[Rfam]
Rfam assigns this 87-nucleotide RNA from Actinidia chinensis to the family "Small nucleolar RNA snoR8a". Rfam classes the family as a C/D-box small nucleolar RNA. The family has 7 seed sequences and 956 matches in Rfam 15.1. A search with the family's covariance model found it, with a score of 80 bits.
RNA sequence: GGGGUUGCGAUGAUUAUAAACAAUUCCUCGUUCUGAAUGCUAUUGCCAAAUGACAGACACGUUUACACCCAUAGAAUAUGAGCAACC
Numbered sequence: 001g002g003g004g005u006u007g008c009g010a011u012g013a014u015u016a017u018a019a020a021c022a023a024u025u026c027c028u029c030g031u032u033c034u035g036a037a038u039g040c041u042a043u044u045g046c047c048a049a050a051u052g053a054c055a056g057a058c059a060c061g062u063u064u065a066c067a068c069c070c071a072u073a074g075a076a077u078a079u080g081a082g083c084a085a086c087c
Stems, first nucleotide, its partner, number of pairs: 003087002006084002